[Rfam]
Nucleotides: 075
Base pairs, nucleotide, nucleotide: 003073004072005071007069008068009067010066012064013063014062015061016060017059018058019057020056023053024051025050026049027048028047029046030045031044032043033042
Number, partner (000 for none) and nucleotide at each position: 001000g002000u003073c004072g005071a006000a007069u008068g009067g010066u011000u012064u013063g014062u015061u016060u017059u018058a019057g020056c021000c022000u023053g024051a025050g026049c027048u028047a029046u030045g031044u032043g033042u034000u035000a036000u037000u038000g039000c040000a041000c042033a043032u044031a045030c046029a047028u048027a049026g050025c051024u052000u053023c054000u055000u056020g057019u058018u059017a060016a061015a062014a063013c064012a065000u066010a067009c068008c069007a070000a071005u072004c073003g074000g075000u
The record is a 75-nucleotide RNA sequence from Caenorhabditis remanei, which matches "mir-355 microRNA precursor family" in Rfam.
A reference for the family is Kato et al. (2009), "Dynamic expression of small non-coding RNAs, including novel microRNAs and piRNAs/21U-RNAs, during Caenorhabditis elegans development", Genome Biol.
The sequence is in the family's curated seed alignment.
Pairs were carried over by alignment from the consensus structure, which was predicted with RNAalifold.
Rfam links the family to the GO terms miRNA-mediated post-transcriptional gene silencing and RISC complex.